[Rfam]
RNA sequence: GGAUGGCAAUCUGGAGACAUCUGCGUAUGGCAGGGGCCGAAGGGGCAAGACCAAGACUCUCAGGCAAAAGGACAGACUCAUAGGA
Numbered sequence: 001g002g003a004u005g006g007c008a009a010u011c012u013g014g015a016g017a018c019a020u021c022u023g024c025g026u027a028u029g030g031c032a033g034g035g036g037c038c039g040a041a042g043g044g045g046c047a048a049g050a051c052c053a054a055g056a057c058u059c060u061c062a063g064g065c066a067a068a069a070g071g072a073c074a075g076a077c078u079c080a081u082a083g084g085a
Stems, first nucleotide, its partner, number of pairs: 008078001010076004020034004036065003039061002043059003
This 85-nucleotide RNA from Firmicutes bacterium CAG:114 belongs to the Rfam family "Glycine riboswitch aptamer". From the family's description: This family represents the bacterial glycine riboswitch. It scores 52 bits against the family's covariance model. Its Rfam clan is "Glycine riboswitch clan". Taxonomically the source falls in Bacillota (Bacteria, Bacillati). The pairing is the family consensus, mapped onto this sequence.